[Rfam]
RNA sequence: UCUCAGACAGGGAAUGAGGUUCUCCCUCAAUUACGAUUGAAACCGCCAAAUGGCUGAUGACUUCUGUGAAUCG
Numbered sequence: 001u002c003u004c005a006g007a008c009a010g011g012g013a014a015u016g017a018g019g020u021u022c023u024c025c026c027u028c029a030a031u032u033a034c035g036a037u038u039g040a041a042a043c044c045g046c047c048a049a050a051u052g053g054c055u056g057a058u059g060a061c062u063u064c065u066g067u068g069a070a071u072c073g
Base pairs, nucleotide, nucleotide: 010026011025012024013023016064017063018062019061020060021059045054046053047052
Shown here is a 73-nucleotide sequence from Dorea formicigenerans, a member of the family "Fluoride riboswitch aptamer (crcB RNA motif)".
Rfam links the family to the GO terms response to fluoride and positive regulation of gene expression.
It scores 45 bits against the family's covariance model.
The source organism's lineage runs through Bacteria, Bacillati, Clostridia, Dorea and Dorea formicigenerans.